[Rfam]
RNA sequence: GUAGAUGCUCAUUCCACUUCUUAUGACAGCAUUGACUUCAUAAACCCAGGAAUGAUGCAGAGCCAAUUAUCGGUGCCUACGUCCACGUUAUCGAUGAACACCCUUCAUCACCAACAGGACGAAACGUUGAGUGAGGCACCAUCCGUCUGUAGACCUGAUUAUCUAUUACACGCUUGUAUAUUACUUAUACAGGCGUUUUUUU
Numbered sequence: 001g002u003a004g005a006u007g008c009u010c011a012u013u014c015c016a017c018u019u020c021u022u023a024u025g026a027c028a029g030c031a032u033u034g035a036c037u038u039c040a041u042a043a044a045c046c047c048a049g050g051a052a053u054g055a056u057g058c059a060g061a062g063c064c065a066a067u068u069a070u071c072g073g074u075g076c077c078u079a080c081g082u083c084c085a086c087g088u089u090a091u092c093g094a095u096g097a098a099c100a101c102c103c104u105u106c107a108u109c110a111c112c113a114a115c116a117g118g119a120c121g122a123a124a125c126g127u128u129g130a131g132u133g134a135g136g137c138a139c140c141a142u143c144c145g146u147c148u149g150u151a152g153a154c155c156u157g158a159u160u161a162u163c164u165a166u167u168a169c170a171c172g173c174u175u176g177u178a179u180a181u182u183a184c185u186u187a188u189a190c191a192g193g194c195g196u197u198u199u200u201u202u
Base pairs, nucleotide, nucleotide: 001063002062006059007058008057009055010054011053012052015050017049019042029033072140073139074138075137076136077135078134081120082119083118084117093109094108095107096106145154146153147152170196171195172194173193174192175191176190177189178188179187
Rfam assigns this 202-nucleotide RNA from Proteus myxofaciens to the family "GlmZ RNA activator of glmS mRNA". Rfam classes the family as a small RNA. The source organism's lineage runs through Bacteria, Pseudomonadati, Pseudomonadota, Enterobacterales and Proteus myxofaciens. The literature on the family includes a 2001 paper in Curr Biol by Argaman et al., "Novel small RNA-encoding genes in the intergenic regions of Escherichia coli". This RNA was discovered in E. coli during a large scale screen. The sraJ gene was expressed in early logarithmic phase, but its level decreased with cell growth. Specific cleavage products of this RNA were found.